The family of this 98-nucleotide RNA from Spirodela intermedia is "Small nucleolar RNA R30/Z108". Rfam describes the family as follows. snoR30 is a C/D box small nucleolar RNA which acts as a methylation guide for 18S ribosomal RNA in plants. Gene Ontology terms of the family: RNA processing and nucleolus. The base pairs follow the family's consensus structure, which was predicted with PFOLD. The match comes from Rfam's covariance-model search (70 bits).
[Rfam]
RNA sequence: AUGGAUUGCAAUGAGGAUAACAAGCUCCCUCUUCUGACCACCAGCUGAGGACACCGCUGGCAGAAUCGAACCAUUAAAACUUCGCCACCACUGAGCAA
Numbered sequence: 001a002u003g004g005a006u007u008g009c010a011a012u013g014a015g016g017a018u019a020a021c022a023a024g025c026u027c028c029c030u031c032u033u034c035u036g037a038c039c040a041c042c043a044g045c046u047g048a049g050g051a052c053a054c055c056g057c058u059g060g061c062a063g064a065a066u067c068g069a070a071c072c073a074u075u076a077a078a079a080c081u082u083c084g085c086c087a088c089c090a091c092u093g094a095g096c097a098a
Base pairs, nucleotide, nucleotide: 006098007097008096009095